[Rfam]
Nucleotides: 207
Base pairs, nucleotide, nucleotide: 007102008101015097016096017095018094025084026083027082028081029080036074037073038072047071048070049069050068051067052066104116105115106114118128119127120126146166147165148164149163150162151161152160171204172203173202174201182200183199184198185197186196
Number, partner (000 for none) and nucleotide at each position: 001000u002000g003000u004000a005000a006000u007102a008101c009000g010000u011000u012000g013000a014000u015097g016096g017095a018094g019000a020000a021000a022000g023000u024000a025084g026083a027082c028081a029080u030000g031000u032000u033000c034000a035000c036074u037073c038072g039000u040000c041000c042000a043000g044000a045000a046000a047071a048070g049069u050068g051067c052066u053000u054000c055000u056000u057000g058000g059000c060000u061000g062000a063000a064000a065000a066052a067051g068050c069049a070048c071047u072038c073037g074036a075000g076000a077000g078000a079000a080029a081028u082027g083026u084025u085000g086000a087000a088000a089000a090000g091000c092000u093000a094018c095017u096016c097015c098000u099000g100000a101008g102007u103000g104116c105115a106114g107000c108000u109000c110000a111000u112000c113000c114106c115105u116104g117000c118128c119127g120126u121000c122000c123000g124000c125000c126120g127119c128118g129000u130000u131000a132000a133000g134000g135000c136000a137000a138000c139000c140000a141000g142000a143000g144000a145000u146166g147165c148164c149163g150162g151161a152160u153000g154000c155000a156000a157000u158000a159000u160152g161151u162150c163149c164148g165147g166146u167000a168000a169000u170000u171204a172203g173202g174201g175000u176000g177000g178000u179000a180000c181000c182200g183199c184198g185197a186196g187000a188000c189000u190000a191000a192000c193000a194000u195000c196186u197185u198184c199183g200182u201174c202173c203172c204171u205000u206000g207000u